[Rfam]
Rfam assigns this 159-nucleotide RNA sequence from Clostridium sp. CT7 to the family "glmS glucosamine-6-phosphate activated ribozyme aptamer". This entry contains a glucosamine-6-phosphate activated ribozyme that is found in the mRNA for GlmS. GlmS is an enzyme that uses fructose-6-phosphate and glutamine to generate glucosamine-6-phosphate. The ribozyme catalyses self cleavage of the glmS mRNA that is thought to regulate GlmS activity. It scores 125 bits against the family's covariance model. By type it is a riboswitch.
RNA sequence: AAUAUAAUUAAAGCGCCCGAACUUAGGUUAACAGAUCUAAGUUGACGAGGAUGGGGAGUAUCGAAAUCUUCGGCGGAUGCCCCACGGUAAACGCACUACCGUUAACGAUUGAUAAAAGCAGAAAGUGAUUUCUGUGACAAAGUCAAUCUGGUGUUAAAA
Numbered sequence: 001a002a003u004a005u006a007a008u009u010a011a012a013g014c015g016c017c018c019g020a021a022c023u024u025a026g027g028u029u030a031a032c033a034g035a036u037c038u039a040a041g042u043u044g045a046c047g048a049g050g051a052u053g054g055g056g057a058g059u060a061u062c063g064a065a066a067u068c069u070u071c072g073g074c075g076g077a078u079g080c081c082c083c084a085c086g087g088u089a090a091a092c093g094c095a096c097u098a099c100c101g102u103u104a105a106c107g108a109u110u111g112a113u114a115a116a117a118g119c120a121g122a123a124a125g126u127g128a129u130u131u132c133u134g135u136g137a138c139a140a141a142g143u144c145a146a147u148c149u150g151g152u153g154u155u156a157a158a159a
Stems, first nucleotide, its partner, number of pairs: 020043008029034001052084005061073004085101005107148005118135007